FMN riboswitch aptamer (RFN element): a 127-nucleotide RNA from Vagococcus elongatus. Taxonomically the source falls in Vagococcus (Bacteria, Bacillota, Lactobacillales, Enterococcaceae). It scores 99 bits against the family's covariance model.
[Rfam]
RNA sequence: GUUCGUCUUCAGGGGCAGGGUGUGAUUCCCGACCGGUGGUGAUAGUCCACGAACUAUUUCUUUUUGAAAUAGCUGAUUUGGUGUAAUUCCAAAACCGACAGUAUAGUCUGGUAUAAAGAGGAUUGGG
Numbered sequence: 001g002u003u004c005g006u007c008u009u010c011a012g013g014g015g016c017a018g019g020g021u022g023u024g025a026u027u028c029c030c031g032a033c034c035g036g037u038g039g040u041g042a043u044a045g046u047c048c049a050c051g052a053a054c055u056a057u058u059u060c061u062u063u064u065u066g067a068a069a070u071a072g073c074u075g076a077u078u079u080g081g082u083g084u085a086a087u088u089c090c091a092a093a094a095c096c097g098a099c100a101g102u103a104u105a106g107u108c109u110g111g112u113a114u115a116a117a118g119a120g121g122a123u124u125g126g127g
Base pairs, nucleotide, nucleotide: 003125005123006122007121008120009119010118018030019029020028032107033106034097035096036050037049038048039047045095046094054072055071077093078092079091080090081089099110100109101108